[Rfam]
RNA sequence: AUCUAUACGUAUAGUUUCACUCAUAUAAUAGCAGGGAUAUGGCCUGCGAGUUUCUACCGGAUUACCGUAAAUAAUCCGACUAUGGGUGGGUAAUAUCUCUGC
Number, nucleotide and partner (000 for none) at each position: 001a000002u000003c000004u000005a000006u000007a000008c000009g000010u000011a000012u000013a000014g000015u000016u000017u000018c088019a087020c086021u085022c084023a083024u082025a081026u000027a000028a000029u049030a000031g047032c046033a045034g044035g043036g000037a000038u000039a000040u000041g000042g000043c035044c034045u033046g032047c031048g000049a029050g000051u000052u000053u000054c000055u000056a000057c000058c078059g077060g076061a075062u074063u073064a072065c000066c000067g000068u000069a000070a000071a000072u064073a063074a062075u061076c060077c059078g058079a000080c000081u025082a024083u023084g022085g021086g020087u019088g018089g000090g000091u000092a000093a000094u000095a000096u000097c000098u000099c000100u000101g000102c000